[Rfam]
RNA sequence: AAAAAGGGUCGGUUGGUUUCGCUCCACUAACCCUACUAAUGAACUUCUAUUUUAAAUAUGCCGUGCCCGCUCUUGUUAGGUGGGUGUUGUAUGGCUAUCAAGACAUAUGACCGACAUAAUUUGUGGGACUUUUAAAGGGUUGGCUAGCUUUGGCCAACCCUCUUC
Numbered sequence: 001a002a003a004a005a006g007g008g009u010c011g012g013u014u015g016g017u018u019u020c021g022c023u024c025c026a027c028u029a030a031c032c033c034u035a036c037u038a039a040u041g042a043a044c045u046u047c048u049a050u051u052u053u054a055a056a057u058a059u060g061c062c063g064u065g066c067c068c069g070c071u072c073u074u075g076u077u078a079g080g081u082g083g084g085u086g087u088u089g090u091a092u093g094g095c096u097a098u099c100a101a102g103a104c105a106u107a108u109g110a111c112c113g114a115c116a117u118a119a120u121u122u123g124u125g126g127g128a129c130u131u132u133u134a135a136a137g138g139g140u141u142g143g144c145u146a147g148c149u150u151u152g153g154c155c156a157a158c159c160c161u162c163u164u165c
Stems, first nucleotide, its partner, number of pairs: 008115005020086005027079005087110007134163001136161011

Rfam assigns this 165-nucleotide sequence from Rhododendron simsii to the family "U11 spliceosomal RNA". The literature on the family includes a 2004 paper in Proc Natl Acad Sci U S A by Schneider et al., "Identification of an evolutionarily divergent U11 small nuclear ribonucleoprotein particle in Drosophila". By type it is a spliceosomal small nuclear RNA. Its family is annotated with pre-mRNA 5'-splice site binding, mRNA 5'-splice site recognition and U11 snRNP in the Gene Ontology. The match comes from Rfam's covariance-model search (63 bits). The family's consensus secondary structure is taken from published work.